The record is a 179-nucleotide sequence, which matches "6S / SsrS RNA" in Rfam. On this family, see Wassarman and Storz, Cell 2000: "6S RNA regulates E. coli RNA polymerase activity". Rfam's curators put it in the seed alignment.
RNA sequence: AACUUCCUGGGGUGUGCGCCAGUCGGUGAUGUCCCUGAGCCGAUACGCACAACCACGGGGGUUGCACGUUGGGGCCGGUGUGCAUGUCCGCCUGACGGAAAGCCUUAACGCCUCCUGCAACCUCCACCUUGAACUUUCGGGUUCAAGGGCUAAACCGACAGCGGCACGCCGGGAAGUCA
Numbered sequence: 001a002a003c004u005u006c007c008u009g010g011g012g013u014g015u016g017c018g019c020c021a022g023u024c025g026g027u028g029a030u031g032u033c034c035c036u037g038a039g040c041c042g043a044u045a046c047g048c049a050c051a052a053c054c055a056c057g058g059g060g061g062u063u064g065c066a067c068g069u070u071g072g073g074g075c076c077g078g079u080g081u082g083c084a085u086g087u088c089c090g091c092c093u094g095a096c097g098g099a100a101a102g103c104c105u106u107a108a109c110g111c112c113u114c115c116u117g118c119a120a121c122c123u124c125c126a127c128c129u130u131g132a133a134c135u136u137u138c139g140g141g142u143u144c145a146a147g148g149g150c151u152a153a154a155c156c157g158a159c160a161g162c163g164g165c166a167c168g169c170c171g172g173g174a175a176g177u178c179a
Stems, first nucleotide, its partner, number of pairs: 002177009012167004017163003031150004036145006057125003061121006071114005082103002087099004